[Rfam]
RNA sequence: GGCAGAGGAAGGGCGGCUAAUUCCGCCACGUCCUGCGGCAGCGCCGUUCUGACCCACGUCGGGUGGG
Dot-bracket structure: ..........(((((((.......(((.(.....).)))...)))))))...(((((.....)))))
Numbered sequence: 001g002g003c004a005g006a007g008g009a010a011g012g013g014c015g016g017c018u019a020a021u022u023c024c025g026c027c028a029c030g031u032c033c034u035g036c037g038g039c040a041g042c043g044c045c046g047u048u049c050u051g052a053c054c055c056a057c058g059u060c061g062g063g064u065g066g067g
Stems, first nucleotide, its partner, number of pairs: 011049007025039003029035001053067005
Bacillaceae-1 RNA: a 67-nucleotide RNA sequence from Peribacillus saganii. NCBI's taxonomy places the organism under Bacteria, Bacillati, Bacillota, Bacillaceae, Peribacillus. The family's consensus secondary structure is taken from published work.